[Rfam]
RNA: Bacterial small signal recognition particle RNA
Organism: Methylibium sp. NZG
Nucleotides: 097
Stems, first nucleotide, its partner, number of pairs: 004091005011082004015075001017074003022069001024066004034059004042051003
Number, partner (000 for none) and nucleotide at each position: 001000g002000a003000c004091g005090g006089g007088c008087c009000u010000c011082c012081c013080u014079g015075c016000a017074u018073g019072g020000a021000a022069g023000c024066g025065c026064g027063g028000c029000c030000a031000a032000c033000c034059g035058g036057g037056u038000c039000a040000g041000g042051u043050c044049g045000g046000g047000a048000a049044c050043g051042a052000a053000g054000c055000a056037g057036c058035c059034c060000c061000a062000a063027c064026c065025g066024u067000u068000g069022u070000a071000a072019c073018c074017a075015g076000u077000g078000c079014c080013a081012g082011g083000a084000u085000c086000g087008g088007g089006c090005u091004c092000g093000u094000c095000a096000c097000c